[Rfam]
RNA sequence: AGUAUAAUCUACCCUUGCGGGUGAGGGAAAUACCGCUCCGCGGUGUGAUAUACGCCUCCGGCAUGUGAGAUCGCUG
Numbered sequence: 001a002g003u004a005u006a007a008u009c010u011a012c013c014c015u016u017g018c019g020g021g022u023g024a025g026g027g028a029a030a031u032a033c034c035g036c037u038c039c040g041c042g043g044u045g046u047g048a049u050a051u052a053c054g055c056c057u058c059c060g061g062c063a064u065g066u067g068a069g070a071u072c073g074c075u076g
Stems, first nucleotide, its partner, number of pairs: 008026003011022004030046006050066003054062003

The family of this 76-nucleotide RNA is "Gut-1 RNA". Rfam 15.1 lists 51 matches to the family in 22 species. The family's consensus secondary structure is taken from published work.